[Rfam]
RNA sequence: AUUGCGAGCCGUGACUGGCGCAUUCAUAAGGUGGGUCCGACCACCGGGGAGCGGCUCCGAACGACCGCCGCGCGCCUGGGUGCCCACC
Numbered sequence: 001a002u003u004g005c006g007a008g009c010c011g012u013g014a015c016u017g018g019c020g021c022a023u024u025c026a027u028a029a030g031g032u033g034g035g036u037c038c039g040a041c042c043a044c045c046g047g048g049g050a051g052c053g054g055c056u057c058c059g060a061a062c063g064a065c066c067g068c069c070g071c072g073c074g075c076c077u078g079g080g081u082g083c084c085c086a087c088c
Stems, first nucleotide, its partner, number of pairs: 003060001006057007015048002017076005031044004066082004